The record is a 173-nucleotide RNA from Clostridium fungisolvens, which matches "Lysine riboswitch aptamer" in Rfam.
Lineage of the source: Bacteria > Bacillati > Eubacteriales > Clostridiaceae > Clostridium.
[Rfam]
RNA sequence: ACCUAGGGUAGAGGUGCUGGAUGUUAAAAGUACUCAUGAGUAGCUGGCAAGUGAUGAUUCAUGAAGAAAGGAACAACAGCCGAAGAGAAUGUACUGCGAAUAUAUUCUCUGGCUAUACGUAUAAGAUAUGUAUAGUUGUCACUUAAAUUUAUAAGUGGAGAGCUACAAGGUGA
Numbered sequence: 001a002c003c004u005a006g007g008g009u010a011g012a013g014g015u016g017c018u019g020g021a022u023g024u025u026a027a028a029a030g031u032a033c034u035c036a037u038g039a040g041u042a043g044c045u046g047g048c049a050a051g052u053g054a055u056g057a058u059u060c061a062u063g064a065a066g067a068a069a070g071g072a073a074c075a076a077c078a079g080c081c082g083a084a085g086a087g088a089a090u091g092u093a094c095u096g097c098g099a100a101u102a103u104a105u106u107c108u109c110u111g112g113c114u115a116u117a118c119g120u121a122u123a124a125g126a127u128a129u130g131u132a133u134a135g136u137u138g139u140c141a142c143u144u145a146a147a148u149u150u151a152u153a154a155g156u157g158g159a160g161a162g163c164u165a166c167a168a169g170g171u172g173a
Base pairs, nucleotide, nucleotide: 008166009165010164011163016080017079018078019077023074024073025072034064035063036062037061038060039059040058084110085109086108087107088106089105090104091103092102093101095099111137112136113135114134115133116132117131118130119129120128121127139158140157141156142155143154144153145152
The family has 47 seed sequences and 3,224 matches in Rfam 15.1. A search with the family's covariance model found it, with a score of 107 bits. Pairs were carried over by alignment from the consensus structure, which is taken from published work.